[Rfam]
RNA sequence: UGCUCUGUAUGGCAUUUCCACCCAGCAGCAUUGUCCUGAUGAGGUGUUCAACAAGCUGUGCUACAGCAGUGUAGUGUUUGGCAUCACUGGUUUUUGGUCCCAUGUCUUUUAAACCUGGUAUUCUUUCUGAAACAGUC
Dot-bracket structure: .((.(.(.......((..((((.(.(((.......))).)..))))......)).).).))...((.(((.(((.....(((((.................)))))........)))..))).))............
This 137-nucleotide RNA from Mionectes macconnelli belongs to the Rfam family "Small nucleolar RNA SNORA8". About the family: ACA8 is a member of the H/ACA class of snoRNA that guide the sites of modification of uridines to pseudouridines. The organism belongs to Mionectes, within Eukaryota. It is annotated as an H/ACA-box small nucleolar RNA. A search with the family's covariance model found it, with a score of 64 bits. Its Rfam clan is "SNORA8 clan".